[Rfam]
RNA sequence: GAGAACUGGUAAUUCGAUGGGUGAAAUGAAGAAGCAACGUUCGGAAGCGCCCACCUUAAUACUCCGACUGGCAGUGUAAGCGGAAACGCUGACUGUCAGAAGCUCGGUGAAGUCGGCAGAGAGCAGCCGUAUUGCAGAAAUGCAGCGAAAGCGGUUCAGCGGUGAAUUGUGCUGCCUAUAUGCCGGAGGUCUAUAAA
Numbered sequence: 001g002a003g004a005a006c007u008g009g010u011a012a013u014u015c016g017a018u019g020g021g022u023g024a025a026a027u028g029a030a031g032a033a034g035c036a037a038c039g040u041u042c043g044g045a046a047g048c049g050c051c052c053a054c055c056u057u058a059a060u061a062c063u064c065c066g067a068c069u070g071g072c073a074g075u076g077u078a079a080g081c082g083g084a085a086a087c088g089c090u091g092a093c094u095g096u097c098a099g100a101a102g103c104u105c106g107g108u109g110a111a112g113u114c115g116g117c118a119g120a121g122a123g124c125a126g127c128c129g130u131a132u133u134g135c136a137g138a139a140a141u142g143c144a145g146c147g148a149a150a151g152c153g154g155u156u157c158a159g160c161g162g163u164g165a166a167u168u169g170u171g172c173u174g175c176c177u178a179u180a181u182g183c184c185g186g187a188g189g190u191c192u193a194u195a196a197a
Base pairs, nucleotide, nucleotide: 018053019052020051021050022049023048033041034040054189055188056187057186064107065106066105067104068099069098070097071096072095073094074093075092081088082087114185115184116183117182118181123175124174125173126172127171128147129146130145134143135142151170152169153168154167155166156165157164158163
Rfam assigns this 197-nucleotide RNA sequence from [Clostridium] leptum to the family "Group II catalytic intron D1-D4-5". From the family's description: Group II introns are found in rRNA, tRNA and mRNA of organelles in fungi, plants and protists, and also in mRNA in bacteria. The pairing is the family consensus, mapped onto this sequence. The organism belongs to [Clostridium] leptum, within Bacteria.